This 271-nucleotide RNA belongs to the Rfam family "Bacterial large signal recognition particle RNA". Rfam classes the family as a non-coding RNA gene. About the family: The signal recognition particle (SRP) is a universally conserved ribonucleoprotein involved in the co-translational targeting of proteins to membranes. The match comes from Rfam's covariance-model search (168 bits).

[Rfam]
RNA sequence: CCGUGCUAGGCGGGGAGUUCGUGGUGCCCUAUACCCCAGAUCCACUUUUAGGGGGCUGAAUUCCCAUCCGAGGCCCGAUUUGCCACUGUUAGAGCGCCUCGCACGUGGUGUUGUGAGUCGGGUCCUUAAGCAACGGGAUCUUCGUGAAACGAGUCAGGUCCGUAAAGGAAGCAGCUCUCAGCGGAGCCUCCCGUGUGCCUUGAGGUAGCCCGGCUUCUAGCCGGCGACGAGACACGCGGGCAGUGGCUCCGGGUCGACGGUGGGUGCACGG
Numbered sequence: 001c002c003g004u005g006c007u008a009g010g011c012g013g014g015g016a017g018u019u020c021g022u023g024g025u026g027c028c029c030u031a032u033a034c035c036c037c038a039g040a041u042c043c044a045c046u047u048u049u050a051g052g053g054g055g056c057u058g059a060a061u062u063c064c065c066a067u068c069c070g071a072g073g074c075c076c077g078a079u080u081u082g083c084c085a086c087u088g089u090u091a092g093a094g095c096g097c098c099u100c101g102c103a104c105g106u107g108g109u110g111u112u113g114u115g116a117g118u119c120g121g122g123u124c125c126u127u128a129a130g131c132a133a134c135g136g137g138a139u140c141u142u143c144g145u146g147a148a149a150c151g152a153g154u155c156a157g158g159u160c161c162g163u164a165a166a167g168g169a170a171g172c173a174g175c176u177c178u179c180a181g182c183g184g185a186g187c188c189u190c191c192c193g194u195g196u197g198c199c200u201u202g203a204g205g206u207a208g209c210c211c212g213g214c215u216u217c218u219a220g221c222c223g224g225c226g227a228c229g230a231g232a233c234a235c236g237c238g239g240g241c242a243g244u245g246g247c248u249c250c251g252g253g254u255c256g257a258c259g260g261u262g263g264g265u266g267c268a269c270g271g
Base pairs, nucleotide, nucleotide: 001271002270003269004268005267006266009057010056011055012030013029014028015027017025018024019023034054035053036052037051039049063264064263065262066261067260068259072255073254074253075252076251082247083246084245085244086243087242088241089240095236096235098231099230100229101228105225106224107222108221109220115216116215117214118213119212120211121210122209123208125204126203127202128201129200130199131195132194134193135192136191137190138189140186141185142184143183144182145181151177152176153175154174159169160168161167